Background:
Rfam assigns this 116-nucleotide sequence from Brucella intermedia to the family "ALIL pseudoknot".
RNA sequence: UGCUUAUUUUGCCCAGGCGGAGCUCGACCGCCCCUUCAAACGAUGAUUUCAUUCAUUGACGAAUACCGUAGCGUGUUUGGGUCGAGCCGAUCUGCAGAUUAUUGCCGAUUGCCCCC
Numbered sequence: 001u002g003c004u005u006a007u008u009u010u011g012c013c014c015a016g017g018c019g020g021a022g023c024u025c026g027a028c029c030g031c032c033c034c035u036u037c038a039a040a041c042g043a044u045g046a047u048u049u050c051a052u053u054c055a056u057u058g059a060c061g062a063a064u065a066c067c068g069u070a071g072c073g074u075g076u077u078u079g080g081g082u083c084g085a086g087c088c089g090a091u092c093u094g095c096a097g098a099u100u101a102u103u104g105c106c107g108a109u110u111g112c113c114c115c116c
Stems, first nucleotide, its partner, number of pairs: 016032005079115001080113002088111002091108002094105004
Background:
Taxonomically the source falls in Brucella intermedia (Bacteria, Pseudomonadati, Brucellaceae, Brucella).